[Rfam]
RNA sequence: UCGCCCACAAUGCCUUUCAACGGUUUCAACACGGAUGCGGUCUCGUGUGCCAAGUGUGAGCGGACGCAAAGCACUGCGAGCCCGUCGGUUAUAUGCCGAAGCCCUUCCGGGGGGCAUCCUUGUUGGAGUCGUUUCCGGUCUUCGGACCGGACGCGUUCCAUCUUUGGUCUCCUCGCGCUAACCCCGUAGCGUGUGGUUUUUAGCGGGCUAAUAAGCCCGCUUUUUUUCG
Numbered sequence: 001u002c003g004c005c006c007a008c009a010a011u012g013c014c015u016u017u018c019a020a021c022g023g024u025u026u027c028a029a030c031a032c033g034g035a036u037g038c039g040g041u042c043u044c045g046u047g048u049g050c051c052a053a054g055u056g057u058g059a060g061c062g063g064a065c066g067c068a069a070a071g072c073a074c075u076g077c078g079a080g081c082c083c084g085u086c087g088g089u090u091a092u093a094u095g096c097c098g099a100a101g102c103c104c105u106u107c108c109g110g111g112g113g114g115c116a117u118c119c120u121u122g123u124u125g126g127a128g129u130c131g132u133u134u135c136c137g138g139u140c141u142u143c144g145g146a147c148c149g150g151a152c153g154c155g156u157u158c159c160a161u162c163u164u165u166g167g168u169c170u171c172c173u174c175g176c177g178c179u180a181a182c183c184c185c186g187u188a189g190c191g192u193g194u195g196g197u198u199u200u201u202a203g204c205g206g207g208c209u210a211a212u213a214a215g216c217c218c219g220c221u222u223u224u225u226u227u228c229g
Stems, first nucleotide, its partner, number of pairs: 005167003019133013033119006039083002043079001047074004054067004085099005102113004135150005171196002174193007202221008
A member of the RNA family "Burkholderia sRNA Bp1_Cand871_SIPHT" from Burkholderia ubonensis, 229 nucleotides long. On this family, see Khoo et al., BMC Genomics 2012: "Computational discovery and RT-PCR validation of novel Burkholderia conserved and Burkholderia pseudomallei unique sRNAs". The sequence is in the family's curated seed alignment.